Rfam assigns this 349-nucleotide part of an RNA from Mycoplasma suis to the family "Bacterial small subunit ribosomal RNA".
The organism belongs to Mycoplasma suis, within Bacteria.
RNA sequence: GGCGUAAAGGAAGCGUAGGCUGAAGUGUGUAUCCAUUGUUAAAAGUACUUGCUUAACAAGUGUUCGCGGUGGAGAUUACACUUCUAGAAUUAGUUAGAGGGCACUGGAAUUCAAUGUGUAGUGGUGGAAUACGUAGAUAUAUUGAGGAACACCAGAGGCUAAGGCGAGUGCCUGGGACAUAAUUGACGCUGAGGCUUGAAAGCGUGGGUAGCAAAUGGGAUUAGAUACCCCAGUAGUCCACGCCGUAAACGAUGGGUAUUAGUCAUUUGAAUUUAAGUUGAGUGAUGUAGCUAACGCGUUAAAUACCCCGCCUGGGUAGUAUAUAUGCAAAUAUGAAACUCAAAGAAAU
Numbered sequence: 001g002g003c004g005u006a007a008a009g010g011a012a013g014c015g016u017a018g019g020c021u022g023a024a025g026u027g028u029g030u031a032u033c034c035a036u037u038g039u040u041a042a043a044a045g046u047a048c049u050u051g052c053u054u055a056a057c058a059a060g061u062g063u064u065c066g067c068g069g070u071g072g073a074g075a076u077u078a079c080a081c082u083u084c085u086a087g088a089a090u091u092a093g094u095u096a097g098a099g100g101g102c103a104c105u106g107g108a109a110u111u112c113a114a115u116g117u118g119u120a121g122u123g124g125u126g127g128a129a130u131a132c133g134u135a136g137a138u139a140u141a142u143u144g145a146g147g148a149a150c151a152c153c154a155g156a157g158g159c160u161a162a163g164g165c166g167a168g169u170g171c172c173u174g175g176g177a178c179a180u181a182a183u184u185g186a187c188g189c190u191g192a193g194g195c196u197u198g199a200a201a202g203c204g205u206g207g208g209u210a211g212c213a214a215a216u217g218g219g220a221u222u223a224g225a226u227a228c229c230c231c232a233g234u235a236g237u238c239c240a241c242g243c244c245g246u247a248a249a250c251g252a253u254g255g256g257u258a259u260u261a262g263u264c265a266u267u268u269g270a271a272u273u274u275a276a277g278u279u280g281a282g283u284g285a286u287g288u289a290g291c292u293a294a295c296g297c298g299u300u301a302a303a304u305a306c307c308c309c310g311c312c313u314g315g316g317u318a319g320u321a322u323a324u325a326u327g328c329a330a331a332u333a334u335g336a337a338a339c340u341c342a343a344a345g346a347a348a349u
Base pairs, nucleotide, nucleotide: 001312002311003310009309011197012196013195014194016191018190019189020188022084023083024082025081026080027079028078031076032073033072034071035070036069037068038067039066045063046062047061048060049059050058051057088184089183090182093178094177095176099173100172101171102170103169104168105167106150110146111145112144113143114142115141116140117139121132122131123130158165159164202243203242204241205240206239207238211237212236216232217231218230219229254308255307256306257305258304259303262286263285264284265283266282267281268280269279270278272276290297291296314341315340316339323334324333325332326331

Pairs were carried over by alignment from the consensus structure, which is taken from published work. For this family Rfam cites "Crystal structure of the ribosome at 5.5 A resolution" (Yusupov et al., Science, 2001).